This 93-nucleotide sequence from Gallus gallus belongs to the Rfam family "mir-1467 microRNA precursor family". A search with the family's covariance model found it, with a score of 104 bits. Its family is annotated with miRNA-mediated post-transcriptional gene silencing and RISC complex in the Gene Ontology. The family's consensus secondary structure was predicted with RNAalifold.
RNA sequence: CAGGACAGGUUGUUUUCUCAGCUACAUCGGUGUAAAUCAAGGGCAAUUCUACUGAGGUUCACACCAGAGUAACUGGGAUCAGAAUCUGGCCAC
Numbered sequence: 001c002a003g004g005a006c007a008g009g010u011u012g013u014u015u016u017c018u019c020a021g022c023u024a025c026a027u028c029g030g031u032g033u034a035a036a037u038c039a040a041g042g043g044c045a046a047u048u049c050u051a052c053u054g055a056g057g058u059u060c061a062c063a064c065c066a067g068a069g070u071a072a073c074u075g076g077g078a079u080c081a082g083a084a085u086c087u088g089g090c091c092a093c
Base pairs, nucleotide, nucleotide: 003091004090006088007087008086009085010084011083013081016078017077018076019075020074021073023071024070025069027068028067029065030064031063032062033061035059036058037057038056040053041052